The family of this 157-nucleotide RNA sequence from Gloeothece verrucosa is "c-di-AMP riboswitch aptamer (ydaO/yuaA leader)". The pairing is the family consensus, mapped onto this sequence. Taxonomically the source falls in Gloeothece verrucosa (Bacteria, Cyanophyceae, Chroococcales, Gloeothece). Its family is annotated with regulation of gene expression and cyclic-di-AMP binding in the Gene Ontology.
RNA sequence: UCCUAAACCUUGCCAAAUCAACCCUAAGAAAAAUUUGGGAAAGUCGGGAACGGGGGAACCGAUAUCAGGGGCUAAUCUCUAUGGUGCGUAUUCUAGAGAAGAACAUCUCUCAGUUCUAGCCCGUCAGCUAACCUCGUCGGCAUUGAGAGGAGACGCU
Numbered sequence: 001u002c003c004u005a006a007a008c009c010u011u012g013c014c015a016a017a018u019c020a021a022c023c024c025u026a027a028g029a030a031a032a033a034u035u036u037g038g039g040a041a042a043g044u045c046g047g048g049a050a051c052g053g054g055g056g057a058a059c060c061g062a063u064a065u066c067a068g069g070g071g072c073u074a075a076u077c078u079c080u081a082u083g084g085u086g087c088g089u090a091u092u093c094u095a096g097a098g099a100a101g102a103a104c105a106u107c108u109c110u111c112a113g114u115u116c117u118a119g120c121c122c123g124u125c126a127g128c129u130a131a132c133c134u135c136g137u138c139g140g141c142a143u144u145g146a147g148a149g150g151a152g153a154c155g156c157u
Stems, first nucleotide, its partner, number of pairs: 011142004018049002050137006060068001069122003077098004101116004